[Rfam]
The record is a 105-nucleotide RNA sequence from Mikania micrantha, which matches "Small nucleolar RNA Z107/R87" in Rfam. Rfam links the family to the GO terms nucleolus and RNA processing. The match comes from Rfam's covariance-model search (95 bits). Taxonomically the source falls in Mikania (Eukaryota, asterids, Heliantheae alliance, Eupatorieae).
RNA sequence: GAUCGCUGUGAUGACUCGCAAAAUUCAAGCUCAACAGACCGGAAUGCAGGCAUCUCUGUAUAGAGAUCAGUUUGCGUGUCGAUAUUCCCGCUGAACUGAGCGAUC
Numbered sequence: 001g002a003u004c005g006c007u008g009u010g011a012u013g014a015c016u017c018g019c020a021a022a023a024u025u026c027a028a029g030c031u032c033a034a035c036a037g038a039c040c041g042g043a044a045u046g047c048a049g050g051c052a053u054c055u056c057u058g059u060a061u062a063g064a065g066a067u068c069a070g071u072u073u074g075c076g077u078g079u080c081g082a083u084a085u086u087c088c089c090g091c092u093g094a095a096c097u098g099a100g101c102g103a104u105c
Base pairs, nucleotide, nucleotide: 001105002104003103004102005101006100